[Rfam]
RNA sequence: CGGGACGAGGGCGCGGUCGCGCCGAGGGCCGAACCCCUCGGGUGAGGAAAGUCCGGGCACCAUAGGGCAGGGUGCCAGGUAACGCCUGGGCGGGGUAACCCGACGGAAAGUGCCACAGAGAAGAGACCGCCAGCGGCCGGGGCUUCCCCCGGUGCGGGCAAGGGUGAAACGGCGGGGUAAGAGCCCACCGCCUGGCCUGGCAACAGGCCGGGGCACGGCAAACCCCACCCGGUGCAAGGCCCGGUAGGCAGGGAGGGCUUGCCCGGCCCGAGAGAACCUGCGGGAUGGGCCGCUUGAGGCCGGUGGCGACACCGGUCCCAGAGAGAUGACCGCGGAAAACAGAACCCGGCUUACGCCUCGUCCCGGAGG
Numbered sequence: 001c002g003g004g005a006c007g008a009g010g011g012c013g014c015g016g017u018c019g020c021g022c023c024g025a026g027g028g029c030c031g032a033a034c035c036c037c038u039c040g041g042g043u044g045a046g047g048a049a050a051g052u053c054c055g056g057g058c059a060c061c062a063u064a065g066g067g068c069a070g071g072g073u074g075c076c077a078g079g080u081a082a083c084g085c086c087u088g089g090g091c092g093g094g095g096u097a098a099c100c101c102g103a104c105g106g107a108a109a110g111u112g113c114c115a116c117a118g119a120g121a122a123g124a125g126a127c128c129g130c131c132a133g134c135g136g137c138c139g140g141g142g143c144u145u146c147c148c149c150c151g152g153u154g155c156g157g158g159c160a161a162g163g164g165u166g167a168a169a170c171g172g173c174g175g176g177g178u179a180a181g182a183g184c185c186c187a188c189c190g191c192c193u194g195g196c197c198u199g200g201c202a203a204c205a206g207g208c209c210g211g212g213g214c215a216c217g218g219c220a221a222a223c224c225c226c227a228c229c230c231g232g233u234g235c236a237a238g239g240c241c242c243g244g245u246a247g248g249c250a251g252g253g254a255g256g257g258c259u260u261g262c263c264c265g266g267c268c269c270g271a272g273a274g275a276a277c278c279u280g281c282g283g284g285a286u287g288g289g290c291c292g293c294u295u296g297a298g299g300c301c302g303g304u305g306g307c308g309a310c311a312c313c314g315g316u317c318c319c320a321g322a323g324a325g326a327u328g329a330c331c332g333c334g335g336a337a338a339a340c341a342g343a344a345c346c347c348g349g350c351u352u353a354c355g356c357c358u359c360g361u362c363c364c365g366g367a368g369g
Base pairs, nucleotide, nucleotide: 001365002364003363004362005361006360007359008358009357010356011354012334013333014332015331016330017329018328020044021043022042023041024039025038026037027036028035049352050351051350053349054348055347056346057345058234059233060232061231065264066263067262068261070230071229072228073227074226075089076088077087078086079085090104091102092101093100094099105225106224110223111222112219113218114217127163128162129159130158131157133155134154135153137151171189172188174186175185176184191213192211193210194209195208196207197206198205199204238291239290240289241288248281249280250279251278252277255269256268257267258266259265298317299316300315301314302313303312304311305310
Bacterial RNase P class A: a 369-nucleotide RNA sequence from Thermus thermophilus. NCBI's taxonomy places the organism under Bacteria, Thermotogati, Thermales, Thermaceae, Thermus. A reference for the family is Frank and Pace (1998), "Ribonuclease P: unity and diversity in a tRNA processing ribozyme", Annu Rev Biochem. The base pairs follow the family's consensus structure, which is taken from published work. Its family is annotated with ribonuclease P activity, dimeric ribonuclease P complex and tRNA processing in the Gene Ontology. Rfam classes the family as a ribozyme.